The family of this 117-nucleotide sequence from Escherichia coli is "ALIL pseudoknot". It is annotated as a cis-regulatory element. The family's consensus secondary structure is taken from published work. Taxonomically the source falls in Escherichia coli (Bacteria, Pseudomonadota, Gammaproteobacteria, Enterobacteriaceae). It is one of the family's seed sequences.
[Rfam]
RNA sequence: CGCGUAUUUUGCGAAGGCGGAGUUCGACCGCCUGUGGAAAAAAUAGCGCCUCUGGUGGAUACCCUGCGUGGUACGCACGGGGUCGGACCGGUAUGCCACGAGCUGGCUGUCGCCCCG
Number, nucleotide and partner (000 for none) at each position: 001c000002g000003c000004g000005u000006a000007u000008u000009u000010u000011g000012c000013g000014a000015a000016g032017g031018c030019g029020g028021a000022g000023u000024u000025c000026g000027a000028c020029c019030g018031c017032c016033u000034g000035u000036g000037g000038a000039a000040a000041a000042a000043a000044u000045a000046g000047c000048g000049c000050c000051u000052c000053u000054g000055g000056u000057g000058g000059a000060u000061a000062c000063c000064c000065u000066g000067c000068g000069u000070g000071g000072u000073a000074c000075g000076c000077a000078c117079g116080g115081g114082g113083u000084c000085g000086g000087a000088c000089c112090g111091g000092u109093a108094u000095g107096c106097c105098a104099c000100g000101a000102g000103c000104u098105g097106g096107c095108u093109g092110u000111c090112g089113c082114c081115c080116c079117g078